The family of this 440-nucleotide RNA from Naumovozyma dairenensis is "Nuclear RNase P". About the family: Ribonuclease P (RNase P) is a ubiquitous endoribonuclease, found in archaea, bacteria and eukarya as well as chloroplasts and mitochondria. Its best characterised activity is the generation of mature 5'-ends of tRNAs by cleaving the 5'-leader elements of precursor-tRNAs. The organism belongs to Naumovozyma, within Eukaryota. Pairs were carried over by alignment from the consensus structure, which is taken from published work. By type it is a ribozyme.
RNA sequence: UGAUUCCUACGUUUUAAGAACCUGUUUACAGAAGGAGGAUAACACUUUAGUGCUUUUCUCAUAUAAGUUCAGGUGGGAAAUUCGGUGAAACACAGCGGAACCAACAACAUCUACCAAGGUGUCGUUGCCCUCCCCAAGCCUAGACGGUGUCUUCUUCUAGGAGGAGCUUAAGUCCAGGUCCUUCCCGUGAGGGCAGUUUUCUUUGCAAUUUUAAAUUUUACUGGGGAACCGGUCUGCCUAAAAAUUGCCAUUGAAGAAUUUAUUGGGACGUCGUUAGCAGAAAUUCACAGAGACCUCUUUCAAAGAAAUUGGUCCCUGAUGGGAACAGCGACGGUAGUUCCAUUUGACUUGUGGUGUGAAAUAAUAUCGACCAUAAGGUCUGUUGAGUGCAAUCGUAGGACAGAUUUGAUUUGAAAAUCUGAACCCGAUCCCGACCACUG
Numbered sequence: 001u002g003a004u005u006c007c008u009a010c011g012u013u014u015u016a017a018g019a020a021c022c023u024g025u026u027u028a029c030a031g032a033a034g035g036a037g038g039a040u041a042a043c044a045c046u047u048u049a050g051u052g053c054u055u056u057u058c059u060c061a062u063a064u065a066a067g068u069u070c071a072g073g074u075g076g077g078a079a080a081u082u083c084g085g086u087g088a089a090a091c092a093c094a095g096c097g098g099a100a101c102c103a104a105c106a107a108c109a110u111c112u113a114c115c116a117a118g119g120u121g122u123c124g125u126u127g128c129c130c131u132c133c134c135c136a137a138g139c140c141u142a143g144a145c146g147g148u149g150u151c152u153u154c155u156u157c158u159a160g161g162a163g164g165a166g167c168u169u170a171a172g173u174c175c176a177g178g179u180c181c182u183u184c185c186c187g188u189g190a191g192g193g194c195a196g197u198u199u200u201c202u203u204u205g206c207a208a209u210u211u212u213a214a215a216u217u218u219u220a221c222u223g224g225g226g227a228a229c230c231g232g233u234c235u236g237c238c239u240a241a242a243a244a245u246u247g248c249c250a251u252u253g254a255a256g257a258a259u260u261u262a263u264u265g266g267g268a269c270g271u272c273g274u275u276a277g278c279a280g281a282a283a284u285u286c287a288c289a290g291a292g293a294c295c296u297c298u299u300u301c302a303a304a305g306a307a308a309u310u311g312g313u314c315c316c317u318g319a320u321g322g323g324a325a326c327a328g329c330g331a332c333g334g335u336a337g338u339u340c341c342a343u344u345u346g347a348c349u350u351g352u353g354g355u356g357u358g359a360a361a362u363a364a365u366a367u368c369g370a371c372c373a374u375a376a377g378g379u380c381u382g383u384u385g386a387g388u389g390c391a392a393u394c395g396u397a398g399g400a401c402a403g404a405u406u407u408g409a410u411u412u413g414a415a416a417a418u419c420u421g422a423a424c425c426c427g428a429u430c431c432c433g434a435c436c437a438c439u440g
Stems, first nucleotide, its partner, number of pairs: 001440002005400007020074005035060005083433003087429001098340004182195001184193003220233005269333007288318003401421007